[Rfam]
RNA: c-di-AMP riboswitch aptamer (ydaO/yuaA leader)
RNA sequence: ACUGCGUACGCGCCGAGGCCCGUCACGUCCGCAGGAGUCAACACACGAGACGGGCAUGGAAGACCCAGCACGACGGCUCCCACCGGAGCCUUGGGGUUAAUCGGUAUCGAUCCGACAGGCAUCCUUCGCGCCUGAACCCGACAGGUCAUCUUUCACAGGCGUGCACGAAGGAACCC
Number, nucleotide and partner (000 for none) at each position: 001a000002c000003u000004g000005c000006g000007u000008a000009c000010g000011c161012g160013c159014c158015g000016a000017g000018g055019c054020c053021c052022g051023u050024c049025a000026c000027g000028u000029c000030c000031g000032c000033a000034g000035g000036a000037g000038u000039c000040a000041a000042c000043a000044c000045a000046c000047g000048a000049g024050a023051c022052g021053g020054g019055c018056a000057u155058g154059g153060a152061a151062g000063a000064c000065c000066c093067a092068g000069c000070a000071c000072g000073a000074c000075g000076g000077c000078u000079c000080c000081c000082a000083c000084c000085g000086g000087a000088g000089c000090c000091u000092u067093g066094g139095g138096g137097u000098u000099a000100a000101u000102c114103g113104g112105u000106a000107u000108c000109g000110a000111u000112c104113c103114g102115a000116c000117a133118g132119g131120c130121a000122u000123c000124c000125u000126u000127c000128g000129c000130g120131c119132c118133u117134g000135a000136a000137c096138c095139c094140g000141a000142c000143a000144g000145g000146u000147c000148a000149u000150c000151u061152u060153u059154c058155a057156c000157a000158g014159g013160c012161g011162u000163g000164c000165a000166c000167g000168a000169a000170g000171g000172a000173a000174c000175c000176c000